RNA sequence: UUUUCUACAAAUCGGAAUAACCUGAAAUUUGGAGCGUGUGUUCAUAAAAAAUAGGCGAAUCUACAAAAAAUAUCAGAAAAAUAUUUUACAUGAAAAUAUUUGACCAAAAUACCCCUGAAAAGUUUCGAGGGUAUUUUGGUCAUUUUUUGGGAAUUAUUUUUUAAUAUUUCUAUUAAGUGUGUCUCACUAAGAUGUACACACGCUCUAAAUUUCAAGUUAUUCUGAUUUGUAGAAAA
Numbered sequence: 001u002u003u004u005c006u007a008c009a010a011a012u013c014g015g016a017a018u019a020a021c022c023u024g025a026a027a028u029u030u031g032g033a034g035c036g037u038g039u040g041u042u043c044a045u046a047a048a049a050a051a052u053a054g055g056c057g058a059a060u061c062u063a064c065a066a067a068a069a070a071u072a073u074c075a076g077a078a079a080a081a082u083a084u085u086u087u088a089c090a091u092g093a094a095a096a097u098a099u100u101u102g103a104c105c106a107a108a109a110u111a112c113c114c115c116u117g118a119a120a121a122g123u124u125u126c127g128a129g130g131g132u133a134u135u136u137u138g139g140u141c142a143u144u145u146u147u148u149g150g151g152a153a154u155u156a157u158u159u160u161u162u163a164a165u166a167u168u169u170c171u172a173u174u175a176a177g178u179g180u181g182u183c184u185c186a187c188u189a190a191g192a193u194g195u196a197c198a199c200a201c202g203c204u205c206u207a208a209a210u211u212u213c214a215a216g217u218u219a220u221u222c223u224g225a226u227u228u229g230u231a232g233a234a235a236a
Stems, first nucleotide, its partner, number of pairs: 001236021023214012036201006043194003062175002066171001068169006075162003079159002101142014117124002
Shown here is a 236-nucleotide RNA sequence from Amborella trichopoda, a member of the family "MIR8562 microRNA precursor family". Rfam links the family to the GO terms RISC complex and miRNA-mediated post-transcriptional gene silencing.